[Rfam]
RNA sequence: GGGUCGUUAGCUCAAUUGGCAGAGCAACUGCCUUUUAAGCAGUGAAGUUGGAGUUCGAGUCUCCAACGACCCA
Numbered sequence: 001g002g003g004u005c006g007u008u009a010g011c012u013c014a015a016u017u018g019g020c021a022g023a024g025c026a027a028c029u030g031c032c033u034u035u036u037a038a039g040c041a042g043u044g045a046a047g048u049u050g051g052a053g054u055u056c057g058a059g060u061c062u063c064c065a066a067c068g069a070c071c072c073a
Stems, first nucleotide, its partner, number of pairs: 001072007010025004027043005049065005
Record summary:
Shown here is a 73-nucleotide RNA sequence from Merismopedia glauca, a member of the family "tRNA". The family's consensus secondary structure is taken from published work. By type it is a transfer RNA.